Rfam assigns this 94-nucleotide RNA sequence from Nyctereutes procyonoides to the family "mir-8799 microRNA precursor family". The organism belongs to Nyctereutes, within Eukaryota. Pairs were carried over by alignment from the consensus structure, which was predicted with RNAalifold. A search with the family's covariance model found it, with a score of 52 bits.
RNA sequence: AGGGGGAGUACCGAGUCCUGGGCUGUGUCCCCGGGGGCCCUGGGCUCCGGGGCCUGCGUCGCUGGAAUCUCGCUCCCGGGCCACGCAGCCCUCU
Number, nucleotide and partner (000 for none) at each position: 001a094002g093003g092004g091005g090006g089007a000008g000009u000010a000011c085012c000013g082014a000015g000016u000017c079018c078019u000020g076021g075022g074023c000024u072025g071026u000027g069028u066029c065030c064031c061032c000033g000034g060035g059036g000037g057038c056039c000040c000041u000042g054043g000044g053045c052046u051047c000048c000049g000050g000051g046052g045053c044054c042055u000056g038057c037058g000059u035060c034061g031062c000063u000064g030065g029066a028067a000068u000069c027070u000071c025072g024073c000074u022075c021076c020077c000078g018079g017080g000081c000082c013083a000084c000085g011086c000087a000088g000089c006090c005091c004092u003093c002094u001